[Rfam]
RNA sequence: AGGUGUUUUUCAGGAGAGAAUUAUCGCAGCUUAUCGCAAGCAUCGGCGCAUAAUCACCGAAGGCGUAAUGUUGAAAAUUGCAAAAGCAAUCUUAAAACCCCUAUAAUCGCUCAGGUAAAAGGACUGAAAAACUUAG
Numbered sequence: 001a002g003g004u005g006u007u008u009u010u011c012a013g014g015a016g017a018g019a020a021u022u023a024u025c026g027c028a029g030c031u032u033a034u035c036g037c038a039a040g041c042a043u044c045g046g047c048g049c050a051u052a053a054u055c056a057c058c059g060a061a062g063g064c065g066u067a068a069u070g071u072u073g074a075a076a077a078u079u080g081c082a083a084a085a086g087c088a089a090u091c092u093u094a095a096a097a098c099c100c101c102u103a104u105a106a107u108c109g110c111u112c113a114g115g116u117a118a119a120a121g122g123a124c125u126g127a128a129a130a131a132c133u134u135a136g
Stems, first nucleotide, its partner, number of pairs: 006131008020054004056116003059112002063110003069103002
About this RNA: A member of the RNA family "Glycine riboswitch aptamer" from Moraxella bovoculi, 136 nucleotides long.